[Rfam]
RNA sequence: UAAAUUUAGAAGCAAAGCAGGCGAAAGUCUGCGACGCAAAGCUAGAGGGCCUUUAAAAUGGCAACCAGUUGCAUGA
Numbered sequence: 001u002a003a004a005u006u007u008a009g010a011a012g013c014a015a016a017g018c019a020g021g022c023g024a025a026a027g028u029c030u031g032c033g034a035c036g037c038a039a040a041g042c043u044a045g046a047g048g049g050c051c052u053u054u055a056a057a058a059u060g061g062c063a064a065c066c067a068g069u070u071g072c073a074u075g076a
Stems, first nucleotide, its partner, number of pairs: 012037002017032006040070004047066002049062003
The family of this 76-nucleotide sequence from Clostridium sp. AM33-3 is "c-di-GMP-I riboswitch aptamer". The match comes from Rfam's covariance-model search (52 bits). The base pairs follow the family's consensus structure, which is taken from published work. The source organism's lineage runs through Bacteria, Clostridia, Eubacteriales, Clostridiaceae and Clostridium.